Rfam assigns this 41-nucleotide sequence to the family "L31-Actinobacteria ribosomal protein leader". The family's consensus secondary structure is taken from published work.
[Rfam]
RNA sequence: UCGGUUCCGGUUCACGCUCGACUGUGGGCGACCCGGCGACC
Numbered sequence: 001u002c003g004g005u006u007c008c009g010g011u012u013c014a015c016g017c018u019c020g021a022c023u024g025u026g027g028g029c030g031a032c033c034c035g036g037c038g039a040c041c
Base pairs, nucleotide, nucleotide: 003041004040005039007036008035009034010033015030016029017028018027019026020025
Dot-bracket structure: ..(((.((((....((((((....))))))..))))..)))